[Rfam]
The family of this 66-nucleotide RNA from Camellia sinensis is "Small nucleolar RNA U49".
By type it is a C/D-box small nucleolar RNA.
Its Rfam clan is "SNORD49 clan".

RNA sequence: UCCCUAUGAGGAAGAAUUCCCAUUGAUAGGAAGUGCCGUAUGACACUCCAAACCACCAACGAGCAU
Numbered sequence: 001u002c003c004c005u006a007u008g009a010g011g012a013a014g015a016a017u018u019c020c021c022a023u024u025g026a027u028a029g030g031a032a033g034u035g036c037c038g039u040a041u042g043a044c045a046c047u048c049c050a051a052a053c054c055a056c057c058a059a060c061g062a063g064c065a066u
Stems, first nucleotide, its partner, number of pairs: 014060001030049001032047004